Plant signal recognition particle RNA: a 303-nucleotide RNA sequence from Solanum lycopersicum.
The family's consensus secondary structure is taken from published work.
On this family, see Wild et al., Curr Opin Struct Biol 2002: "Towards the structure of the mammalian signal recognition particle".
Rfam's curators put it in the seed alignment.
[Rfam]
RNA sequence: GUUGAGCUUAGUAACGUGGGCUUGUAAUCCAAGUGGAGACAUCAAAGUGGUUGAAUAUUGGGCUGUACCAGAUGGUUGGGCUUGGUGGGCUAAUUUCUGACUUGCCCUAUCCAAGCUUAGAGUUGGAUCAUGUGGCCCAAUUGAAGAAAUGGACUACUUGAUUCGUAAAGUGGGGCGGAAUGCGUGAGGCUGGUUUCACAGAGCAGUGAACAGCUCCCGCUCUGUGCAGUGGAAGGAUAAUGGGUCGGUGUCUUAUCAAGUUCAGUAACGCCUAAUGGGUUGCUCCAAUAAACAACCACCUUU
Number, nucleotide and partner (000 for none) at each position: 001g040002u039003u038004g023005a022006g021007c020008u019009u018010a017011g000012u000013a000014a000015c000016g000017u010018g009019g008020g007021c006022u005023u004024g000025u000026a000027a000028u037029c036030c035031a000032a000033g000034u000035g030036g029037a028038g003039a002040c001041a000042u000043c000044a303045a302046a301047g300048u000049g000050g297051u000052u295053g000054a000055a000056u291057a000058u288059u287060g286061g284062g283063c282064u000065g280066u279067a000068c278069c277070a276071g000072a000073u000074g272075g271076u270077u000078g263079g262080g261081c260082u259083u258084g257085g256086u000087g254088g253089g252090c000091u250092a249093a000094u000095u000096u000097c248098u247099g246100a245101c244102u243103u242104g241105c000106c236107c235108u000109a000110u233111c232112c231113a230114a000115g227116c226117u000118u224119a223120g222121a221122g220123u219124u000125g164126g163127a162128u161129c160130a159131u000132g157133u156134g155135g154136c000137c152138c151139a150140a000141u148142u147143g000144a000145a000146g000147a142148a141149a000150u139151g138152g137153a000154c135155u134156a133157c132158u000159u130160g129161a128162u127163u126164c125165g000166u000167a000168a000169a000170g000171u000172g217173g216174g215175g214176c213177g000178g000179a000180a000181u210182g000183c208184g207185u206186g000187a000188g000189g000190c201191u200192g199193g000194u000195u000196u000197c000198a000199c192200a191201g190202a000203g000204c000205a000206g185207u184208g183209a000210a181211c000212a000213g176214c175215u174216c173217c172218c000219g123220c122221u121222c120223u119224g118225u000226g116227c115228a000229g000230u113231g112232g111233a110234a000235g107236g106237a000238u000239a000240a000241u104242g103243g102244g101245u100246c099247g098248g097249u092250g091251u000252c089253u088254u087255a000256u085257c084258a083259a082260g081261u080262u079263c078264a000265g000266u000267a000268a000269c000270g076271c075272c074273u000274a000275a000276u070277g069278g068279g066280u065281u000282g063283c062284u061285c000286c060287a059288a058289u000290a000291a056292a000293c000294a000295a052296c000297c050298a000299c000300c047301u046302u045303u044